[Rfam]
Notes: c-di-AMP riboswitch aptamer (ydaO/yuaA leader): a 146-nucleotide RNA sequence from Desulfotruncus arcticus.
RNA sequence: UGAACAAAUACACCGAAUCCCCAAAUUAGGGAGCGGGGGAACCAUUAUAGGAACCAUUAAUAGGGGUGAAUUGCUUAUUUACUGCAAGGGGCUAUCUUUCGGUCCUAACCCGGCAGCUAACCUCGUAGGUGUAGAAAGGGACAAAA
Number, nucleotide and partner (000 for none) at each position: 001u000002g000003a000004a000005c000006a000007a000008a000009u000010a000011c131012a130013c129014c128015g000016a000017a000018u032019c031020c030021c000022c000023a000024a000025a000026u000027u000028a000029g000030g020031g019032a018033g126034c125035g124036g123037g122038g121039g000040a000041a000042c000043c063044a000045u000046u000047a000048u000049a000050g000051g000052a000053a000054c000055c000056a000057u000058u000059a000060a000061u000062a000063g043064g111065g110066g109067u000068g000069a000070a000071u000072u086073g085074c084075u000076u000077a000078u000079u000080u000081a000082c000083u000084g074085c073086a072087a000088g000089g105090g104091g103092c102093u000094a000095u000096c000097u000098u000099u000100c000101g000102g092103u091104c090105c089106u000107a000108a000109c066110c065111c064112g000113g000114c000115a000116g000117c000118u000119a000120a000121c038122c037123u036124c035125g034126u033127a000128g014129g013130u012131g011132u000133a000134g000135a000136a000137a000138g000139g000140g000141a000142c000143a000144a000145a000146a000

A search with the family's covariance model found it, with a score of 92 bits.